[Rfam]
RNA: RNA Staph. aureus D
RNA sequence: GUUUGCUAUAAUUAGUUUCAUCUUCUUGUUGGAAACAGCAAGAAGCCAUCUCCUUUGUGUUGUUUAUAGUAACAAAACAAAUUUUUGCUCGAUGUAUACACAAGUACUAGUCCUUGCUUGUUGUAUACUCAAAUUCAUUUCCCGUAAAGCCAAGUCUAGUGUAGGUCGACACCACUUACAUAUGACUUGGCUUUU
Numbered sequence: 001g002u003u004u005g006c007u008a009u010a011a012u013u014a015g016u017u018u019c020a021u022c023u024u025c026u027u028g029u030u031g032g033a034a035a036c037a038g039c040a041a042g043a044a045g046c047c048a049u050c051u052c053c054u055u056u057g058u059g060u061u062g063u064u065u066a067u068a069g070u071a072a073c074a075a076a077a078c079a080a081a082u083u084u085u086u087g088c089u090c091g092a093u094g095u096a097u098a099c100a101c102a103a104g105u106a107c108u109a110g111u112c113c114u115u116g117c118u119u120g121u122u123g124u125a126u127a128c129u130c131a132a133a134u135u136c137a138u139u140u141c142c143c144g145u146a147a148a149g150c151c152a153a154g155u156c157u158a159g160u161g162u163a164g165g166u167c168g169a170c171a172c173c174a175c176u177u178a179c180a181u182a183u184g185a186c187u188u189g190g191c192u193u194u195u
Base pairs, nucleotide, nucleotide: 018048022045023044024043025042026041027040028039029038030037031036054081055080056079057078058077060075061074062073063072064071094126095125096124097123098121101120102119104117105116106115150190151189152188153187154186155185156184157182158181